Shown here is a 76-nucleotide RNA from Aotus nancymaae, a member of the family "mir-320 microRNA precursor family".

[Rfam]
RNA sequence: ACUGAUUUUUGGCCUUUCUUCCUGAUUCUUCCUGGAGUUGGGAAAAAUUGGGUUGAGAGGGCAAAAAUAACAAAAA
Numbered sequence: 001a002c003u004g005a006u007u008u009u010u011g012g013c014c015u016u017u018c019u020u021c022c023u024g025a026u027u028c029u030u031c032c033u034g035g036a037g038u039u040g041g042g043a044a045a046a047a048u049u050g051g052g053u054u055g056a057g058a059g060g061g062c063a064a065a066a067a068u069a070a071c072a073a074a075a076a
Base pairs, nucleotide, nucleotide: 014059015058016057017056018055021052022051023050024049025048029044030043031042032041033040034039
Dot-bracket structure: .............(((((..(((((...((((((....))))))...)))))..))))).................
Taxonomically the source falls in Aotus (Eukaryota, Theria, Eutheria, Euarchontoglires). A search with the family's covariance model found it, with a score of 66 bits. Its family is annotated with positive regulation of stem cell proliferation, RISC complex and cellular response to glucose stimulus in the Gene Ontology.